[Rfam]
RNA: Pseudomonas sRNA P26
RNA sequence: AUGCUAAGGCCUAAGCAUUAAGCCUUAGCCUUAAUGCUAAGGCUAGUGGCUUAAUGCUAAGCCACUAGCCU
Numbered sequence: 001a002u003g004c005u006a007a008g009g010c011c012u013a014a015g016c017a018u019u020a021a022g023c024c025u026u027a028g029c030c031u032u033a034a035u036g037c038u039a040a041g042g043c044u045a046g047u048g049g050c051u052u053a054a055u056g057c058u059a060a061g062c063c064a065c066u067a068g069c070c071u
Stems, first nucleotide, its partner, number of pairs: 014038005022029002041070013